The record is a 156-nucleotide sequence from Coffea arabica, which matches "small nucleolar RNA snoR134" in Rfam. Pairs were carried over by alignment from the consensus structure, which was predicted with RNAalifold. NCBI's taxonomy places the organism under Eukaryota, Mesangiospermae, eudicotyledons, asterids, Coffea. The literature on the family includes a 2009 paper in Nucleic Acids Res by Chen and Wu, "Mining small RNA sequencing data: a new approach to identify small nucleolar RNAs in Arabidopsis". Gene Ontology terms of the family: RNA processing and nucleolus.
RNA sequence: UUGCACGUAGCCUCCCGGGCUGCUCCGAAUCUAUAUUAAAUGAAGAAGAUUGCCCCAAAGCUCGUGCUAAAACGUCGCCGUUCAGUGUUGCAGUUCAGCCUCAUGUACCUAAUUUCAUCCCAGGGCUGAAUCUGUGUCAAAGUAACGGCUAUAUUU
Numbered sequence: 001u002u003g004c005a006c007g008u009a010g011c012c013u014c015c016c017g018g019g020c021u022g023c024u025c026c027g028a029a030u031c032u033a034u035a036u037u038a039a040a041u042g043a044a045g046a047a048g049a050u051u052g053c054c055c056c057a058a059a060g061c062u063c064g065u066g067c068u069a070a071a072a073c074g075u076c077g078c079c080g081u082u083c084a085g086u087g088u089u090g091c092a093g094u095u096c097a098g099c100c101u102c103a104u105g106u107a108c109c110u111a112a113u114u115u116c117a118u119c120c121c122a123g124g125g126c127u128g129a130a131u132c133u134g135u136g137u138c139a140a141a142g143u144a145a146c147g148g149c150u151a152u153a154u155u156u
Base pairs, nucleotide, nucleotide: 003067004066005065006064007063010061011060017055018054019053020052023048024046025045077149078148079147080146081145082144086139087138089136090135091134092133093132098126099125100124